[Rfam]
The family of this 83-nucleotide RNA from Cohnella candida is "ZMP/ZTP riboswitch aptamer (pfl RNA motif)".
The family has 185 seed sequences and 3,295 matches in Rfam 15.1.
A search with the family's covariance model found it, with a score of 55 bits.
RNA sequence: ACGUUCCGAUGUGACUGGCGACGCGAAGUGGGUGGAACCACGGGGGAGCAUCGGAAUGACGGCCGGUCGCCUGGGCGAAGAGC
Numbered sequence: 001a002c003g004u005u006c007c008g009a010u011g012u013g014a015c016u017g018g019c020g021a022c023g024c025g026a027a028g029u030g031g032g033u034g035g036a037a038c039c040a041c042g043g044g045g046g047a048g049c050a051u052c053g054g055a056a057u058g059a060c061g062g063c064c065g066g067u068c069g070c071c072u073g074g075g076c077g078a079a080g081a082g083c
Stems, first nucleotide, its partner, number of pairs: 003057010015045002017071005028041004062076003